[Rfam]
RNA sequence: GCGGUUCUAGCCCAACUGGCAGAGGCAGCUGGUCGAGAGCCAGCACAGUCGGGGUUCGACUCCCCGGAACCGCA
Numbered sequence: 001g002c003g004g005u006u007c008u009a010g011c012c013c014a015a016c017u018g019g020c021a022g023a024g025g026c027a028g029c030u031g032g033u034c035g036a037g038a039g040c041c042a043g044c045a046c047a048g049u050c051g052g053g054g055u056u057c058g059a060c061u062c063c064c065c066g067g068a069a070c071c072g073c074a
Stems, first nucleotide, its partner, number of pairs: 001073007010026003028044005050066005
Shown here is a 74-nucleotide sequence from Amycolatopsis sp. CA-230715, a member of the family "tRNA". By type it is a transfer RNA. Pairs were carried over by alignment from the consensus structure, which is taken from published work. Lineage of the source: Bacteria > Actinomycetota > Pseudonocardiales > Pseudonocardiaceae > Amycolatopsis. The literature on the family includes a 1993 paper in Trends Biochem Sci by Hou, "The tertiary structure of tRNA and the development of the genetic code". A search with the family's covariance model found it, with a score of 46 bits.